[Rfam]
RNA: Vertebrate telomerase RNA
RNA sequence: AUGUUUUGUGUGUUUUUGCAGCUCACGAAUCUAACCCUAACAAAUCGUCUUCUUUAGUUAGUGACAUGGUGACCCCGCAUGUUUACCGCUGUUUUGUGGUUGGUUUUCAGCGAUUCCUGGGGUCUUCGGUUGUGCCCCCCCCCCCCCCCCCCCCCCCCCCCCCGGGUUUCAGGAAUGCGUCCAUGUUUGGUUUAUCUCGACUUGGGUUUCGUUCUCUCGAUCACGCUCCUCGGGGCCACAUCGAUCCCUUGCUCAUUGCUAAGGAUGUCGAUGUGAAGGGUUCGUCCCUGCCGAUCGAUGGGAUCCCGUACGGACAACCUCGAGAGGCCAAUACGAGUAAUGGGAAUACACGAUUGUUUGCGGCCUUCUUGAAAUGUGGAAUGGACUGCCUCGUGUAUUUCAUACAUCC
Numbered sequence: 001a002u003g004u005u006u007u008g009u010g011u012g013u014u015u016u017u018g019c020a021g022c023u024c025a026c027g028a029a030u031c032u033a034a035c036c037c038u039a040a041c042a043a044a045u046c047g048u049c050u051u052c053u054u055u056a057g058u059u060a061g062u063g064a065c066a067u068g069g070u071g072a073c074c075c076c077g078c079a080u081g082u083u084u085a086c087c088g089c090u091g092u093u094u095u096g097u098g099g100u101u102g103g104u105u106u107u108c109a110g111c112g113a114u115u116c117c118u119g120g121g122g123u124c125u126u127c128g129g130u131u132g133u134g135c136c137c138c139c140c141c142c143c144c145c146c147c148c149c150c151c152c153c154c155c156c157c158c159c160c161c162c163c164g165g166g167u168u169u170c171a172g173g174a175a176u177g178c179g180u181c182c183a184u185g186u187u188u189g190g191u192u193u194a195u196c197u198c199g200a201c202u203u204g205g206g207u208u209u210c211g212u213u214c215u216c217u218c219g220a221u222c223a224c225g226c227u228c229c230u231c232g233g234g235g236c237c238a239c240a241u242c243g244a245u246c247c248c249u250u251g252c253u254c255a256u257u258g259c260u261a262a263g264g265a266u267g268u269c270g271a272u273g274u275g276a277a278g279g280g281u282u283c284g285u286c287c288c289u290g291c292c293g294a295u296c297g298a299u300g301g302g303a304u305c306c307c308g309u310a311c312g313g314a315c316a317a318c319c320u321c322g323a324g325a326g327g328c329c330a331a332u333a334c335g336a337g338u339a340a341u342g343g344g345a346a347u348a349c350a351c352g353a354u355u356g357u358u359u360g361c362g363g364c365c366u367u368c369u370u371g372a373a374a375u376g377u378g379g380a381a382u383g384g385a386c387u388g389c390c391u392c393g394u395g396u397a398u399u400u401c402a403u404a405c406a407u408c409c
Base pairs, nucleotide, nucleotide: 005183008180009179010178011177012176013175014174015173016172017171018170020168021167022166023165024164071124072123073122074121075120085114087112088111089110090109091108099160187331188330189329190328191327192326205319206318207317208314209313210312211311219305220304221303222302224297225296227294228293237275238274239273240272241271242270243269244268245267248263249262250261277289278288279287280286343401344400345399346398347397348396349395350394351393352392353391361388362387363386366381367380368379369378